[Rfam]
RNA sequence: AUGAGUUUACGGCAUCUCUCAAAUGCCGUUGGUGCGGGUGGGUUACUACCGUCCAGUUUCUUGCUUCUGGUCAAAGAGCAAGUGGCGUGCAUGGCA
Numbered sequence: 001a002u003g004a005g006u007u008u009a010c011g012g013c014a015u016c017u018c019u020c021a022a023a024u025g026c027c028g029u030u031g032g033u034g035c036g037g038g039u040g041g042g043u044u045a046c047u048a049c050c051g052u053c054c055a056g057u058u059u060c061u062u063g064c065u066u067c068u069g070g071u072c073a074a075a076g077a078g079c080a081a082g083u084g085g086c087g088u089g090c091a092u093g094g095c096a
Stems, first nucleotide, its partner, number of pairs: 009029007039051003053070004060082006
Dot-bracket structure: ........(((((((.......))))))).........(((.......))).[[[[...((((((.]]]]......))))))..............